Overview:
Shown here is a 114-nucleotide RNA from Pseudohoeflea suaedae, a member of the family "Alphaproteobacterial ar15". Its Rfam clan is "suhB sRNA clan". The match comes from Rfam's covariance-model search (103 bits). Rfam classes the family as a small RNA.
RNA sequence: AGCUGAUGCACCUUUGGCGGUCACUCCUCCCAGUGCCGCCGCAUGAGCUGUUCCCCUCUGGAGGUUUUGACCUUCACACCUUAUAGGCCCGCGCAUUUGCGCCGGGCCUUUUUU
Numbered sequence: 001a002g003c004u005g006a007u008g009c010a011c012c013u014u015u016g017g018c019g020g021u022c023a024c025u026c027c028u029c030c031c032a033g034u035g036c037c038g039c040c041g042c043a044u045g046a047g048c049u050g051u052u053c054c055c056c057u058c059u060g061g062a063g064g065u066u067u068u069g070a071c072c073u074u075c076a077c078a079c080c081u082u083a084u085a086g087g088c089c090c091g092c093g094c095a096u097u098u099g100c101g102c103c104g105g106g107c108c109u110u111u112u113u114u
Stems, first nucleotide, its partner, number of pairs: 001049004007043003017039004059076007085109006091102004
Dot-bracket structure: ((((..(((.......((((...............)))).)))..)))).........(((((((....)))))))........((((((((((....)))).)))))).....